[Rfam]
RNA sequence: CUCGCUUUCUGAACAUUGAUUUUGUAUCUAGCUUUACAUUCAAUGAAGUUCGAUCCCAUUGUGAGGCCUAGACGAACGUUCUCCUCGCUAUCCAGAGUUUCAUUUAACAUGAUCCAUUUGGACGUCGGAGAACUACAUUC
Dot-bracket structure: ((.((..(.....((.((.....(.(((.((.(((..........))))).))).))).)).)..))..))......(((((((.((...(((((....(((.......))).....)))))))..))))))).......
A member of the RNA family "Small nucleolar RNA snoR136" from Cucumis melo, 140 nucleotides long.
By type it is an H/ACA-box small nucleolar RNA.